[Rfam]
RNA sequence: UGAUGAAAAUUCUCCGGAAUCGCUGUACCUCUUUGAUGAUCCCUUGAACCCAUGUACUCUGAUGGCUGUCUUUUAGUCCUC
Numbered sequence: 001u002g003a004u005g006a007a008a009a010u011u012c013u014c015c016g017g018a019a020u021c022g023c024u025g026u027a028c029c030u031c032u033u034u035g036a037u038g039a040u041c042c043c044u045u046g047a048a049c050c051c052a053u054g055u056a057c058u059c060u061g062a063u064g065g066c067u068g069u070c071u072u073u074u075a076g077u078c079c080u081c
Base pairs, nucleotide, nucleotide: 002081003080005078006077

A member of the RNA family "Small nucleolar RNA MBII-202" from Pogona vitticeps, 81 nucleotides long. For this family Rfam cites "RNomics: an experimental approach that identifies 201 candidates for novel, small, non-messenger RNAs in mouse" (Huttenhofer et al., EMBO J, 2001). Pairs were carried over by alignment from the consensus structure, which was predicted with PFOLD.